[Rfam]
RNA sequence: GAGUCAGGGGUACUAGUGGAGUAGCCCGGCUAGUACCCCUUGGUAAUGGUGUUGAGCCAGAUGUAGUGUUACGGGCUUUUG
Dot-bracket structure: .......(((((((((......[[[[[..)))))))))..(.(((.(.(........))..))).)......]]]]]....

A member of the RNA family "Coronavirus frameshifting stimulation element" from Bat coronavirus, 81 nucleotides long. This family represents a conserved stem-loop found in Coronaviruses which can promote ribosomal frameshifting. This family interacts with a downstream region to form a pseudoknot structure, the region varies according to the virus but pseudoknot formation is known to stimulate frameshifting. On this family, see Baranov et al., Virology 2005: "Programmed ribosomal frameshifting in decoding the SARS-CoV genome". By type it is a frameshift element.